[Rfam]
RNA sequence: AUGGAGAAUCUGUAAAGCUCAGGAGGGAUAGCGCCGUAACCAAACAAAAAUAAGUAUAGGCCGGUGUCGUUUUUGUCACGGCUCGUUACCAUAAUAUCUUAAGGAUAUUGGCGCUAUCUAUCCUGAGUUUCACGGCUUCUUCUU
Number, nucleotide and partner (000 for none) at each position: 001a000002u000003g000004g000005a000006g000007a000008a000009u000010c135011u000012g000013u000014a000015a000016a129017g128018c127019u126020c125021a124022g123023g122024a121025g000026g119027g118028a117029u116030a115031g114032c113033g112034c111035c110036g000037u000038a000039a000040c000041c000042a000043a000044a000045c000046a000047a000048a000049a000050a000051u000052a000053a000054g000055u000056a000057u000058a000059g000060g000061c000062c000063g000064g000065u000066g000067u000068c000069g000070u000071u000072u000073u000074u000075g000076u000077c000078a000079c000080g000081g000082c000083u000084c000085g000086u000087u000088a000089c000090c000091a000092u000093a000094a000095u000096a000097u000098c000099u000100u000101a000102a000103g000104g000105a000106u000107a000108u000109u000110g035111g034112c033113g032114c031115u030116a029117u028118c027119u026120a000121u024122c023123c022124u021125g020126a019127g018128u017129u016130u000131c000132a000133c000134g000135g010136c000137u000138u000139c000140u000141u000142c000143u000144u000
RNA: MIR390 microRNA precursor family